[Rfam]
RNA sequence: CCGGCUCCGGUUCACCUUCGCCCGCGCAUGUGCGCGGGACGGCGUACGCCGCGGGAGGACCCGGAGCC
Numbered sequence: 001c002c003g004g005c006u007c008c009g010g011u012u013c014a015c016c017u018u019c020g021c022c023c024g025c026g027c028a029u030g031u032g033c034g035c036g037g038g039a040c041g042g043c044g045u046a047c048g049c050c051g052c053g054g055g056a057g058g059a060c061c062c063g064g065a066g067c068c
Stems, first nucleotide, its partner, number of pairs: 003068003007064004015058005023051001
Rfam assigns this 68-nucleotide sequence from Saccharomonospora sp. CUA-673 to the family "L31-Actinobacteria ribosomal protein leader". Clan: Ribosomal Protein L31 Leader clan. The literature on the family includes a 2020 paper in BMC Microbiol by Eckert and Weinberg, "Discovery of 20 novel ribosomal leader candidates in bacteria and archaea".